[Rfam]
RNA: Small nucleolar RNA snoR2/U65
Organism: Trifolium subterraneum
RNA sequence: GGUCUGAUGCCACGUCUCUGGUAGCUAUACAUAGCACUGACCAAAGAUGCUAUGAUUGGACCAAAAUCAAAAGUGCUUGUCAUUUGUUUCGCACUUUGAUAGGAAUCUGUAAAUCUUAUAUGCUAUGAUUAUGCAGAGCCGAUUUGUGCGAAACAGCU
Numbered sequence: 001g002g003u004c005u006g007a008u009g010c011c012a013c014g015u016c017u018c019u020g021g022u023a024g025c026u027a028u029a030c031a032u033a034g035c036a037c038u039g040a041c042c043a044a045a046g047a048u049g050c051u052a053u054g055a056u057u058g059g060a061c062c063a064a065a066a067u068c069a070a071a072a073g074u075g076c077u078u079g080u081c082a083u084u085u086g087u088u089u090c091g092c093a094c095u096u097u098g099a100u101a102g103g104a105a106u107c108u109g110u111a112a113a114u115c116u117u118a119u120a121u122g123c124u125a126u127g128a129u130u131a132u133g134c135a136g137a138g139c140c141g142a143u144u145u146g147u148g149c150g151a152a153a154c155a156g157c158u
Stems, first nucleotide, its partner, number of pairs: 002061007009053001013049005020042003024035003089151005102140002107136003112130004